[Rfam]
RNA sequence: UGCAAAUGAUGUUUUCUCACGAUGGUCUACAUAGCCUUAUCAUUAGGGAUUGCUGAUACUGCUUCAAAGCACUUCACUGAUGCAAUUAU
Numbered sequence: 001u002g003c004a005a006a007u008g009a010u011g012u013u014u015u016c017u018c019a020c021g022a023u024g025g026u027c028u029a030c031a032u033a034g035c036c037u038u039a040u041c042a043u044u045a046g047g048g049a050u051u052g053c054u055g056a057u058a059c060u061g062c063u064u065c066a067a068a069g070c071a072c073u074u075c076a077c078u079g080a081u082g083c084a085a086u087u088a089u
Stems, first nucleotide, its partner, number of pairs: 001084004
The record is an 89-nucleotide RNA sequence from Strongylocentrotus purpuratus, which matches "Small nucleolar RNA SNORD35" in Rfam. Gene Ontology terms of the family: nucleolus and RNA processing. The family's consensus secondary structure was predicted with PFOLD. NCBI's taxonomy places the organism under Eukaryota, Bilateria, Echinacea, Strongylocentrotidae, Strongylocentrotus. The literature on the family includes a 1996 paper in J Mol Biol by Nicoloso et al., "Intron-encoded, antisense small nucleolar RNAs: the characterization of nine novel species points to their direct role as guides for the 2'-O-ribose methylation of rRNAs". A search with the family's covariance model found it, with a score of 49 bits. U35 is a C/D box snoRNA located in intron 6 of ribosomal protein L13A and intron 3 of ribosomal protein S11 in humans and at homologous positions in mouse and chicken ribosomal protein genes. Clan: SNORD35 clan. The family has 8 seed sequences and 1,842 matches in Rfam 15.1.